A member of the RNA family "TPP riboswitch aptamer (THI element)" from Cerasibacillus terrae, 109 nucleotides long.
[Rfam]
RNA sequence: UUCAUCCACUAGGGGUGCCUUUUAAAAAGGCUGAGAUCAAAGUGUUGCUUUGGGACUCUUGGAACCUGAUCUGGUUGGUGCCAGCGGAGGGAAGUGAGAAGUCGUACUU
Numbered sequence: 001u002u003c004a005u006c007c008a009c010u011a012g013g014g015g016u017g018c019c020u021u022u023u024a025a026a027a028a029g030g031c032u033g034a035g036a037u038c039a040a041a042g043u044g045u046u047g048c049u050u051u052g053g054g055a056c057u058c059u060u061g062g063a064a065c066c067u068g069a070u071c072u073g074g075u076u077g078g079u080g081c082c083a084g085c086g087g088a089g090g091g092a093a094g095u096g097a098g099a100a101g102u103c104g105u106a107c108u109u
Stems, first nucleotide, its partner, number of pairs: 007096004011059004016053001017031005038052005065090003071084004
Pairs were carried over by alignment from the consensus structure, which is taken from published work.
A search with the family's covariance model found it, with a score of 82 bits.
NCBI's taxonomy places the organism under Bacteria, Bacillati, Bacilli, Caryophanales, Cerasibacillus.